Shown here is a 113-nucleotide RNA from Parafrankia sp. EAN1pec, a member of the family "Group II catalytic intron D1-D4-2". About the family: Group II introns are found in rRNA, tRNA and mRNA of organelles in fungi, plants and protists, and also in mRNA in bacteria. Rfam 15.1 lists 1,231 matches to the family in 625 species. The source organism's lineage runs through Bacteria, Actinomycetota, Frankiales, Frankiaceae and Parafrankia. Rfam links the family to the GO term Group II intron splicing.

[Rfam]
RNA sequence: GAGGCCCUUCGGAGUCGCCCUGCGGGGGGAGGCUCCAAACCACCCAGCGGUGCCUUAGCUGAAGACUGUGGUGUUGAACGGUCUGGGAAAAGUCCGGGUGAACCCGGGCAGGU
Numbered sequence: 001g002a003g004g005c006c007c008u009u010c011g012g013a014g015u016c017g018c019c020c021u022g023c024g025g026g027g028g029g030a031g032g033c034u035c036c037a038a039a040c041c042a043c044c045c046a047g048c049g050g051u052g053c054c055u056u057a058g059c060u061g062a063a064g065a066c067u068g069u070g071g072u073g074u075u076g077a078a079c080g081g082u083c084u085g086g087g088a089a090a091a092g093u094c095c096g097g098g099u100g101a102a103c104c105c106g107g108g109c110a111g112g113u
Stems, first nucleotide, its partner, number of pairs: 001010002011036006018029004041112001043087005048081001049075002052072003056068003092109006